[Rfam]
RNA sequence: GCAACCUGAAGCUGGCGCAUGGCAACACGGUGGUGUUCCGUUCGGUGCUGGGCAUCAGCUGGAUGUGGUUCUUCGGCGCGGUGUUCCUCAGCCAGUUUCCGAGUUUUGCCAAGGAGGUGCUG
Numbered sequence: 001g002c003a004a005c006c007u008g009a010a011g012c013u014g015g016c017g018c019a020u021g022g023c024a025a026c027a028c029g030g031u032g033g034u035g036u037u038c039c040g041u042u043c044g045g046u047g048c049u050g051g052g053c054a055u056c057a058g059c060u061g062g063a064u065g066u067g068g069u070u071c072u073u074c075g076g077c078g079c080g081g082u083g084u085u086c087c088u089c090a091g092c093c094a095g096u097u098u099c100c101g102a103g104u105u106u107u108g109c110c111a112a113g114g115a116g117g118u119g120c121u122g
Stems, first nucleotide, its partner, number of pairs: 010049003015043001017041002021037004026032001051121005059113002062110001063105001067099002071095002076092002078088001080087002